[Rfam]
RNA sequence: UGUGUUCACAGUGGACCUUGAUUUAAUUUCAAUACAAUUAAGGCACGCGGUGAAUGCC
Number, nucleotide and partner (000 for none) at each position: 001u000002g057003u056004g055005u054006u053007c052008a051009c050010a000011g048012u047013g046014g000015a000016c043017c042018u041019u040020g039021a038022u037023u036024u000025a000026a000027u000028u000029u000030c000031a000032a000033u000034a000035c000036a023037a022038u021039u020040a019041a018042g017043g016044c000045a000046c013047g012048c011049g000050g009051u008052g007053a006054a005055u004056g003057c002058c000

The record is a 58-nucleotide RNA from Ictalurus punctatus, which matches "mir-124 microRNA precursor family" in Rfam. Rfam 15.1 lists 2,215 matches to the family in 905 species. Its family is annotated with RISC complex and miRNA-mediated post-transcriptional gene silencing in the Gene Ontology. It is one of the family's seed sequences. The family's consensus secondary structure was predicted with PFOLD.